A member of the RNA family "Selenocysteine insertion sequence 1" from Magallana gigas, 67 nucleotides long. Rfam classes the family as a cis-regulatory element. Taxonomically the source falls in Magallana (Eukaryota, Mollusca, Pteriomorphia, Ostreidae). Pairs were carried over by alignment from the consensus structure, which is taken from published work. The family has 61 seed sequences and 3,793 matches in Rfam 15.1.
RNA sequence: AACAGAGAAUGAAAAUCUCUUCUUAAAUCCUGAUCCAGGCUGAUGAGAUUUGAUGUUGAAUGCUGUU
Numbered sequence: 001a002a003c004a005g006a007g008a009a010u011g012a013a014a015a016u017c018u019c020u021u022c023u024u025a026a027a028u029c030c031u032g033a034u035c036c037a038g039g040c041u042g043a044u045g046a047g048a049u050u051u052g053a054u055g056u057u058g059a060a061u062g063c064u065g066u067u
Stems, first nucleotide, its partner, number of pairs: 001067005014050006021043002029039003
About this RNA
A search with the family's covariance model found it, with a score of 38 bits. Rfam links the family to the GO term selenocysteine incorporation.